[Rfam]
MIR898 microRNA precursor family: a 153-nucleotide sequence from Physcomitrium patens. NCBI's taxonomy places the organism under Eukaryota, Streptophyta, Embryophyta, Funariidae, Physcomitrium. Pairs were carried over by alignment from the consensus structure, which was predicted with RNAalifold.
RNA sequence: CUUGUUUGUUUCCGGCGUAUUGCUGUGCACUACUUAGUACACGCGUAUCGGUUUGCACUCCAGAUGUAGCAAUUGAAAACGAAGAUAUUCCUGGAAAGUUUGCAACCGCGUGGGUGCUAGGCAGUGCACAGCGAUAUGCUGGGUAUGGACAGC
Numbered sequence: 001c002u003u004g005u006u007u008g009u010u011u012c013c014g015g016c017g018u019a020u021u022g023c024u025g026u027g028c029a030c031u032a033c034u035u036a037g038u039a040c041a042c043g044c045g046u047a048u049c050g051g052u053u054u055g056c057a058c059u060c061c062a063g064a065u066g067u068a069g070c071a072a073u074u075g076a077a078a079a080c081g082a083a084g085a086u087a088u089u090c091c092u093g094g095a096a097a098g099u100u101u102g103c104a105a106c107c108g109c110g111u112g113g114g115u116g117c118u119a120g121g122c123a124g125u126g127c128a129c130a131g132c133g134a135u136a137u138g139c140u141g142g143g144u145a146u147g148g149a150c151a152g153c
Base pairs, nucleotide, nucleotide: 003151004150005149006148007147008146009145011143012142013141014140015139016138017137018136019135020134021133022132023131024130025129026128027127028126029125030124031123033121034120035119036118037117038116039115040114042112049108050107051106052105053104055099056098059095060094061093062092063091073084074083